HIV gag stem loop 3 (GSL3): an 84-nucleotide RNA sequence from Lentivirus humimdef1. The base pairs follow the family's consensus structure, which was predicted with PFOLD. This family consists of several HIV gag stem loop 3 (GSL3) sequences. Rfam's curators put it in the seed alignment. The family's RNA type in Rfam is cis-regulatory element.
[Rfam]
RNA sequence: GGCCAGGGAGUAAAAAAAGCUAUAAAUUAAAACAUAUAGUAUGGGCAAGCAGGGAGCUAGAACGAUUCGCACUUAACCCUGGCC
Numbered sequence: 001g002g003c004c005a006g007g008g009a010g011u012a013a014a015a016a017a018a019g020c021u022a023u024a025a026a027u028u029a030a031a032a033c034a035u036a037u038a039g040u041a042u043g044g045g046c047a048a049g050c051a052g053g054g055a056g057c058u059a060g061a062a063c064g065a066u067u068c069g070c071a072c073u074u075a076a077c078c079c080u081g082g083c084c
Base pairs, nucleotide, nucleotide: 001084002083003082004081005080006079007078008077